RNA: Small nucleolar RNA SNORD24
Organism: Henningerozyma blattae
Nucleotides: 090
Base pairs, nucleotide, nucleotide: 001090002089003088004087
Number, partner (000 for none) and nucleotide at each position: 001090c002089u003088c004087a005000u006000g007000u008000g009000a010000u011000g012000a013000u014000u015000a016000u017000c018000u019000a020000u021000a022000u023000u024000u025000g026000c027000u028000a029000c030000u031000u032000c033000g034000g035000a036000c037000g038000g039000g040000g041000c042000g043000u044000c045000a046000a047000a048000a049000c050000u051000u052000c053000g054000a055000a056000u057000g058000a059000g060000a061000c062000a063000u064000a065000c066000u067000u068000u069000u070000a071000u072000c073000a074000c075000c076000a077000a078000g079000a080000u081000c082000u083000c084000u085000g086000a087004u088003g089002a090001g